[Rfam]
A member of the RNA family "small nucleolar RNA snoR137" from Genlisea aurea, 149 nucleotides long.
The match comes from Rfam's covariance-model search (71 bits).
On this family, see Chen and Wu, Nucleic Acids Res 2009: "Mining small RNA sequencing data: a new approach to identify small nucleolar RNAs in Arabidopsis".
The family's RNA type in Rfam is H/ACA-box small nucleolar RNA.
Lineage of the source: Eukaryota > Tracheophyta > Spermatophyta > asterids > Genlisea.
RNA sequence: GUUGCUCCCCUCCGCAUUGGUGAAGUCUUUCAAUGAAAAAGAGUGAGAGAUGUCACAUGUUUUGGGAAGCAUAUAUGAAAUUUGUCAGUUUUUAACAGCACGGUGUUUUCUUUGCAAUAUCAUCGUGUUACCUGUCUGCUGCAACAUGU
Numbered sequence: 001g002u003u004g005c006u007c008c009c010c011u012c013c014g015c016a017u018u019g020g021u022g023a024a025g026u027c028u029u030u031c032a033a034u035g036a037a038a039a040a041g042a043g044u045g046a047g048a049g050a051u052g053u054c055a056c057a058u059g060u061u062u063u064g065g066g067a068a069g070c071a072u073a074u075a076u077g078a079a080a081u082u083u084g085u086c087a088g089u090u091u092u093u094a095a096c097a098g099c100a101c102g103g104u105g106u107u108u109u110c111u112u113u114g115c116a117a118u119a120u121c122a123u124c125g126u127g128u129u130a131c132c133u134g135u136c137u138g139c140u141g142c143a144a145c146a147u148g149u
Base pairs, nucleotide, nucleotide: 003071004070005069006068007066008065021057022056024053026050027049028048029047030046086141087140088139089138097129098128099127101125102124103123104122105121